[Rfam]
RNA sequence: GAGGAAAAGAAGAAGCACCCGCUUCUCACCUGAUUGACGCAAAUAGCAGUUGGCAGGUUUUACGUGAACAUUUUUUGUUUAUAUACGUAAGUGUGGGUGUUUUCAUCCGCACUUUUUUUAUUGC
Numbered sequence: 001g002a003g004g005a006a007a008a009g010a011a012g013a014a015g016c017a018c019c020c021g022c023u024u025c026u027c028a029c030c031u032g033a034u035u036g037a038c039g040c041a042a043a044u045a046g047c048a049g050u051u052g053g054c055a056g057g058u059u060u061u062a063c064g065u066g067a068a069c070a071u072u073u074u075u076u077g078u079u080u081a082u083a084u085a086c087g088u089a090a091g092u093g094u095g096g097g098u099g100u101u102u103u104c105a106u107c108c109g110c111a112c113u114u115u116u117u118u119u120a121u122u123g124c
Base pairs, nucleotide, nucleotide: 011026012025013024014023015022016021028058029057030056036051037050038049039047040046092111093110094109095108096107097106098105099104
About this RNA
Shown here is a 124-nucleotide RNA sequence from Bacillus mesophilum, a member of the family "Ribosomal protein L20 leader". This family is a putative r-protein leader autoregulatory structure found in B. subtilis and other low-GC Gram-positive bacteria. It is located in the 5' untranslated regions of mRNAs encoding initiation factor 3 followed by ribosomal proteins L35 and L20 (infC-rpmI-rplT). Rfam classes the family as a cis-regulatory leader. On this family, see Zengel and Lindahl, Prog Nucleic Acid Res Mol Biol 1994: "Diverse mechanisms for regulating ribosomal protein synthesis in Escherichia coli". The base pairs follow the family's consensus structure, which was predicted with CMfinder.